[Rfam]
RNA sequence: AUACUUACCUUAAGACGUCAGUGGAGAUCAAGAAGUCCUACUGACCGGAUAUGUCUUUCUGGAGGGAUGCCUGUCUUUAACAGGAGACGGGUUCCCUUGCUCAGUUUCGUACUGCACAUACUAGCGAAAGAUGUGUUUGCUGACGUUCUCGUUCCCUCGUUUUACUUGCAAUUGAUGUCUUCGGAUGUCAUUGCUCGCUAAAGCCCUUUGUUUCUUCUGCCUGGAGAAGUAUGGCACUGAUUACAAGUCAGUGCUGGGGGAGUCGGGUUUGGAUUCUCGUUACGUGCUUUUCUUCAAGUUAAAGACUGUCGAUUCCUUUGCUUUUGCUUUUUGAAUCUUUUGGUGGGCUUCGGCCUAUUGAGGGCGGAAAAUUGUAGGAGCGUUGAGAAGGUGACUGUCAAGAAGUAUUUGCAUAGAGAUGUUCAAACUUGGUAGAGACGGGUGGGUCUUAUAAUUUUUGAUGUAUCAC
Numbered sequence: 001a002u003a004c005u006u007a008c009c010u011u012a013a014g015a016c017g018u019c020a021g022u023g024g025a026g027a028u029c030a031a032g033a034a035g036u037c038c039u040a041c042u043g044a045c046c047g048g049a050u051a052u053g054u055c056u057u058u059c060u061g062g063a064g065g066g067a068u069g070c071c072u073g074u075c076u077u078u079a080a081c082a083g084g085a086g087a088c089g090g091g092u093u094c095c096c097u098u099g100c101u102c103a104g105u106u107u108c109g110u111a112c113u114g115c116a117c118a119u120a121c122u123a124g125c126g127a128a129a130g131a132u133g134u135g136u137u138u139g140c141u142g143a144c145g146u147u148c149u150c151g152u153u154c155c156c157u158c159g160u161u162u163u164a165c166u167u168g169c170a171a172u173u174g175a176u177g178u179c180u181u182c183g184g185a186u187g188u189c190a191u192u193g194c195u196c197g198c199u200a201a202a203g204c205c206c207u208u209u210g211u212u213u214c215u216u217c218u219g220c221c222u223g224g225a226g227a228a229g230u231a232u233g234g235c236a237c238u239g240a241u242u243a244c245a246a247g248u249c250a251g252u253g254c255u256g257g258g259g260g261a262g263u264c265g266g267g268u269u270u271g272g273a274u275u276c277u278c279g280u281u282a283c284g285u286g287c288u289u290u291u292c293u294u295c296a297a298g299u300u301a302a303a304g305a306c307u308g309u310c311g312a313u314u315c316c317u318u319u320g321c322u323u324u325u326g327c328u329u330u331u332u333g334a335a336u337c338u339u340u341u342g343g344u345g346g347g348c349u350u351c352g353g354c355c356u357a358u359u360g361a362g363g364g365c366g367g368a369a370a371a372u373u374g375u376a377g378g379a380g381c382g383u384u385g386a387g388a389a390g391g392u393g394a395c396u397g398u399c400a401a402g403a404a405g406u407a408u409u410u411g412c413a414u415a416g417a418g419a420u421g422u423u424c425a426a427a428c429u430u431g432g433u434a435g436a437g438a439c440g441g442g443u444g445g446g447u448c449u450u451a452u453a454a455u456u457u458u459u460g461a462u463g464u465a466u467c468a469c
Stems, first nucleotide, its partner, number of pairs: 010454003013449003017045005023038003046139014144440003148437003153261006159204006168194005174189006214229005234254007
Yeast U1 spliceosomal RNA: a 469-nucleotide RNA sequence from Lachancea fermentati. It is annotated as a spliceosomal small nuclear RNA. The literature on the family includes a 1997 paper in Nucleic Acids Res by Zwieb, "The uRNA database". About the family: U1 is a small nuclear RNA (snRNA) component of the spliceosome (involved in pre-mRNA splicing). Its 5' end forms complementary base pairs with the 5' splice junction, thus defining the 5' donor site of an intron. There are significant differences in sequence and secondary structure between metazoan and yeast U1 snRNAs, the latter being much longer (568 nucleotides as compared to 164 nucleotides in human). Nevertheless, secondary structure predictions suggest that all U1 snRNAs share a 'common core' consisting of helices I, II, the proximal region of III, and IV. This family represents the larger yeast sequences. Gene Ontology terms of the family: U1 snRNP, mRNA 5'-splice site recognition and pre-mRNA 5'-splice site binding. The family's consensus secondary structure is taken from published work. It scores 206 bits against the family's covariance model.